[Rfam]
RNA: U2 spliceosomal RNA
Organism: Eleutherodactylus coqui
RNA sequence: AACCCUAUCUGAGGGGAAAAAAAAAAAAAUCUGUUCUUAUCAGUUCAAUAUCUGAUACGUCCCCUAUCUGGGGACCAUAUAUUAAAUGGAUUUUUAGAACAGGGAGCUGGAAAAAGAGCUUGCUCUGUCCACUCCACGCAUUGACCUGGUAUUGCAGUACCUCCAGGACCGGUGCACCCCCU
Numbered sequence: 001a002a003c004c005c006u007a008u009c010u011g012a013g014g015g016g017a018a019a020a021a022a023a024a025a026a027a028a029a030u031c032u033g034u035u036c037u038u039a040u041c042a043g044u045u046c047a048a049u050a051u052c053u054g055a056u057a058c059g060u061c062c063c064c065u066a067u068c069u070g071g072g073g074a075c076c077a078u079a080u081a082u083u084a085a086a087u088g089g090a091u092u093u094u095u096a097g098a099a100c101a102g103g104g105a106g107c108u109g110g111a112a113a114a115a116g117a118g119c120u121u122g123c124u125c126u127g128u129c130c131a132c133u134c135c136a137c138g139c140a141u142u143g144a145c146c147u148g149g150u151a152u153u154g155c156a157g158u159a160c161c162u163c164c165a166g167g168a169c170c171g172g173u174g175c176a177c178c179c180c181c182u
Stems, first nucleotide, its partner, number of pairs: 004014002038057006059075006103135004109129002115126004138175006145167005